[Rfam]
RNA sequence: UACCUUACAAGUAGUUGUAAGGGAUGGAGAUUGUUGUCAACAGUUCUGUAACCAACUCAUAAGAGAAGGUCGG
Number, nucleotide and partner (000 for none) at each position: 001u000002a000003c022004c021005u020006u019007a018008c017009a016010a015011g000012u000013a000014g000015u010016u009017g008018u007019a006020a005021g004022g003023g000024a000025u000026g000027g000028a000029g000030a000031u000032u000033g000034u000035u000036g000037u000038c000039a000040a000041c000042a000043g000044u000045u000046c000047u000048g000049u000050a000051a000052c068053c000054a000055a000056c065057u064058c063059a000060u000061a000062a000063g058064a057065g056066a000067a000068g052069g000070u000071c000072g000073g000
RT-6 RNA: a 73-nucleotide sequence. The family's consensus secondary structure is taken from published work. It is annotated as a small RNA.